[Rfam]
Nucleotides: 259
Stems, first nucleotide, its partner, number of pairs: 001259001003257002037241003041237002048216002051213005059114007072099006079092001080090001122180001124179006137165003141161007
Number, partner (000 for none) and nucleotide at each position: 001259u002000u003257u004256c005000c006000a007000u008000a009000g010000g011000a012000a013000a014000c015000a016000g017000u018000g019000a020000g021000a022000a023000a024000c025000a026000g027000u028000u029000u030000u031000a032000g033000a034000a035000a036000a037241c038240a039239g040000u041237u042236u043000a044000a045000g046000a047000u048216u049215u050000g051213c052212c053211a054210g055209u056000a057000u058000g059114c060113a061112g062111c063110u064109g065108c066000c067000u068000c069000u070000c071000u072099u073098c074097a075096u076095c077094a078000g079092g080090c081000u082000c083000u084000g085000g086000g087000a088000g089000u090080g091000c092079u093000g094077u095076g096075a097074u098073g099072g100000u101000c102000a103000g104000a105000a106000g107000g108065g109064c110063a111062g112061c113060u114059g115000a116000c117000a118000c119000u120000c121000u122180g123000u124179g125178a126177u127176g128175u129174c130000c131000c132000c133000a134000u135000u136000c137165u138164g139163u140000a141161u142160u143159c144158c145157u146156u147155g148000g149000u150000g151000a152000g153000c154000u155147c156146a157145a158144g159143g160142a161141a162000g163139a164138u165137g166000c167000u168000g169000u170000g171000g172000u173000u174129g175128g176127c177126a178125u179124c180122c181000a182000g183000c184000a185000a186000c187000u188000u189000a190000g191000u192000c193000a194000c195000a196000u197000a198000g199000g200000g201000g202000u203000u204000u205000g206000g207000u208000c209055g210054u211053u212052g213051g214000g215049a216048g217000u218000g219000c220000u221000g222000g223000u224000a225000u226000c227000u228000g229000u230000g231000g232000c233000c234000a235000u236042g237041a238000u239039c240038u241037g242000a243000c244000u245000u246000u247000u248000c249000a250000a251000g252000c253000u254000g255000a256004g257003a258000c259001a